[Rfam]
RNA sequence: GCCUCGGCAACGGGAAAUCUGAGGAAGCUGGAGGCAAACUUCUGGACUCACGAACAGAAGUCAUAUCAGGUAUAUAUAGAUCUGGCAAGGCUGCUGCAUAAGCCAAAGCCUUAAACUAUCCGCGGGGUCUAUUGGAAACAAUGGAAGAAAGUCAGAAGAAACUUAAAAGGC
Numbered sequence: 001g002c003c004u005c006g007g008c009a010a011c012g013g014g015a016a017a018u019c020u021g022a023g024g025a026a027g028c029u030g031g032a033g034g035c036a037a038a039c040u041u042c043u044g045g046a047c048u049c050a051c052g053a054a055c056a057g058a059a060g061u062c063a064u065a066u067c068a069g070g071u072a073u074a075u076a077u078a079g080a081u082c083u084g085g086c087a088a089g090g091c092u093g094c095u096g097c098a099u100a101a102g103c104c105a106a107a108g109c110c111u112u113a114a115a116c117u118a119u120c121c122g123c124g125g126g127g128u129c130u131a132u133u134g135g136a137a138a139c140a141a142u143g144g145a146a147g148a149a150a151g152u153c154a155g156a157a158g159a160a161a162c163u164u165a166a167a168a169g170g171c
Stems, first nucleotide, its partner, number of pairs: 003014004027171003034164001039158006047147002061144004071135001074132001077131006084110003089104004
A member of the RNA family "Group II catalytic intron D1-D4-3" from Anaerotignum neopropionicum, 171 nucleotides long. Taxonomically the source falls in Anaerotignum (Bacteria, Clostridia, Lachnospirales, Anaerotignaceae). Gene Ontology term of the family: Group II intron splicing.